[Rfam]
Rfam assigns this 100-nucleotide RNA sequence from Clostridium fungisolvens to the family "Purine riboswitch aptamer". The organism belongs to Clostridium, within Bacteria. The family's consensus secondary structure is taken from published work. Gene Ontology term of the family: purine nucleobase biosynthetic process. The match comes from Rfam's covariance-model search (81 bits).
RNA sequence: AAAAUUAAUAGAAAUGAAAUUCGUAUAACCUCAACAAUACGGGUUGAGGGUCUCUACCAGGAACCGUAAAAUCCUGAUUACGAAGAAAAUUGUUGACUCA
Numbered sequence: 001a002a003a004a005u006u007a008a009u010a011g012a013a014a015u016g017a018a019a020u021u022c023g024u025a026u027a028a029c030c031u032c033a034a035c036a037a038u039a040c041g042g043g044u045u046g047a048g049g050g051u052c053u054c055u056a057c058c059a060g061g062a063a064c065c066g067u068a069a070a071a072u073c074c075u076g077a078u079u080a081c082g083a084a085g086a087a088a089a090u091u092g093u094u095g096a097c098u099c100a
Stems, first nucleotide, its partner, number of pairs: 020084006029049007058076005